[Rfam]
RNA: Makes More Granules Regulator RNA (mmgR)
RNA sequence: CGCCGCUGCCCUCCUUGGGCGUUUCCUCCCUAGACUUGGGCCGUUCGCCUUGCGCGGACGGCCUUUUUUCUAUGUCUU
Numbered sequence: 001c002g003c004c005g006c007u008g009c010c011c012u013c014c015u016u017g018g019g020c021g022u023u024u025c026c027u028c029c030c031u032a033g034a035c036u037u038g039g040g041c042c043g044u045u046c047g048c049c050u051u052g053c054g055c056g057g058a059c060g061g062c063c064u065u066u067u068u069u070c071u072a073u074g075u076c077u078u
Stems, first nucleotide, its partner, number of pairs: 008020004039063009